[Rfam]
RNA sequence: UGGCUGUAGCCAAAUCAAAUAGUUGAGAAGUUUACUGGCCGGCCAUUGUGAGAUUUCUGUAAAUCUUUGUCGAUGGAUCUGCUUACCGAGCUUCUCACAUUU
Numbered sequence: 001u002g003g004c005u006g007u008a009g010c011c012a013a014a015u016c017a018a019a020u021a022g023u024u025g026a027g028a029a030g031u032u033u034a035c036u037g038g039c040c041g042g043c044c045a046u047u048g049u050g051a052g053a054u055u056u057c058u059g060u061a062a063a064u065c066u067u068u069g070u071c072g073a074u075g076g077a078u079c080u081g082c083u084u085a086c087c088g089a090g091c092u093u094c095u096c097a098c099a100u101u102u
Base pairs, nucleotide, nucleotide: 025096026095027094028093029092030091031090032089037083038082039081041079042078044076045074046073047072048071
Rfam assigns this 102-nucleotide RNA from Rosa chinensis to the family "Small nucleolar RNA snoR109". On this family, see Marker et al., Curr Biol 2002: "Experimental RNomics: identification of 140 candidates for small non-messenger RNAs in the plant Arabidopsis thaliana". Lineage of the source: Eukaryota > Streptophytina > rosids > Rosoideae > Rosa. The match comes from Rfam's covariance-model search (83 bits). Its family is annotated with nucleolus and RNA processing in the Gene Ontology.